[Rfam]
RNA sequence: UAACGAUACUACUAAACCAUCCGCAAGGAUGGGGCGGAAAGCCUAAGGGUCUCCCUGAGACAGCCGGGUUGCCGAA
Numbered sequence: 001u002a003a004c005g006a007u008a009c010u011a012c013u014a015a016a017c018c019a020u021c022c023g024c025a026a027g028g029a030u031g032g033g034g035c036g037g038a039a040a041g042c043c044u045a046a047g048g049g050u051c052u053c054c055c056u057g058a059g060a061c062a063g064c065c066g067g068g069u070u071g072c073c074g075a076a
Base pairs, nucleotide, nucleotide: 012037013036017032018031019030020029021028022027040070041069042068043067047065048064049061050060051059052058053057
The record is a 76-nucleotide RNA from Geobacter sp. SVR, which matches "c-di-GMP-I riboswitch aptamer" in Rfam. A search with the family's covariance model found it, with a score of 50 bits. GEMM was predicted in a large-scale screen for bacterial structured RNA regulatory elements. Genes associated with GEMM are involved in a diverse array of functions, including chemotaxis regulation, signal transduction, secretion and chitin.